The record is a 75-nucleotide sequence from Mariniplasma anaerobium, which matches "c-di-GMP-I riboswitch aptamer" in Rfam.
The base pairs follow the family's consensus structure, which is taken from published work.
The match comes from Rfam's covariance-model search (63 bits).
Rfam links the family to the GO term cyclic-di-GMP binding.
RNA sequence: AAAUGUAAAAGGCAAACUUAGGGAAAUCUAAGGACGCAAAACUACAGGGCCUGUUAAUGGUAGCCAGUUGUCAUU
Numbered sequence: 001a002a003a004u005g006u007a008a009a010a011g012g013c014a015a016a017c018u019u020a021g022g023g024a025a026a027u028c029u030a031a032g033g034a035c036g037c038a039a040a041a042c043u044a045c046a047g048g049g050c051c052u053g054u055u056a057a058u059g060g061u062a063g064c065c066a067g068u069u070g071u072c073a074u075u
Base pairs, nucleotide, nucleotide: 012037013036017032018031019030020029021028022027040069041068042067043066047065048064049061050060051059